RNA sequence: GGGUCGGAAUCGGGAGAAUCCGGGGGCAACCCCGGUGCCGAAGGAGCAACCGCCCCGGUAAACUCUCAGGCGCAAGGGACCGUUCCGACCGA
Numbered sequence: 001g002g003g004u005c006g007g008a009a010u011c012g013g014g015a016g017a018a019u020c021c022g023g024g025g026g027c028a029a030c031c032c033c034g035g036u037g038c039c040g041a042a043g044g045a046g047c048a049a050c051c052g053c054c055c056c057g058g059u060a061a062a063c064u065c066u067c068a069g070g071c072g073c074a075a076g077g078g079a080c081c082g083u084u085c086c087g088a089c090c091g092a
Stems, first nucleotide, its partner, number of pairs: 005087005011082003020035004037071003040067002044065003050058002